[Rfam]
RNA: Acido-Lenti-1 RNA
Nucleotides: 045
Base pairs, nucleotide, nucleotide: 002018003017005015006014007013008012032044033043034042035041036040
Number, partner (000 for none) and nucleotide at each position: 001000a002018g003017u004000a005015g006014g007013g008012c009000g010000a011000u012008g013007c014006c015005c016000c017003a018002c019000g020000c021000u022000a023000a024000a025000a026000u027000a028000u029000a030000g031000c032044g033043c034042c035041c036040u037000u038000u039000c040036a041035g042034g043033g044032c045000u